[Rfam]
RNA: Small nucleolar RNA SNORD58
Organism: Physeter macrocephalus
RNA sequence: UUGCUGUGACGACUAACUUAGGACACCUUUGGAAUAGCCAUGAAAGGAGACUCUUCUGAGCAAC
Numbered sequence: 001u002u003g004c005u006g007u008g009a010c011g012a013c014u015a016a017c018u019u020a021g022g023a024c025a026c027c028u029u030u031g032g033a034a035u036a037g038c039c040a041u042g043a044a045a046g047g048a049g050a051c052u053c054u055u056c057u058g059a060g061c062a063a064c
Stems, first nucleotide, its partner, number of pairs: 001063004